[Rfam]
RNA sequence: GCGCCUAUAGCUCAGGGGAUAGAGCACCGGCCUCCGGAGCCGGGUUUGCGGGGGUUCGAAUCCUCCUAGGCGCA
Numbered sequence: 001g002c003g004c005c006u007a008u009a010g011c012u013c014a015g016g017g018g019a020u021a022g023a024g025c026a027c028c029g030g031c032c033u034c035c036g037g038a039g040c041c042g043g044g045u046u047u048g049c050g051g052g053g054g055u056u057c058g059a060a061u062c063c064u065c066c067u068a069g070g071c072g073c074a
Stems, first nucleotide, its partner, number of pairs: 001073007010025004027043005050066005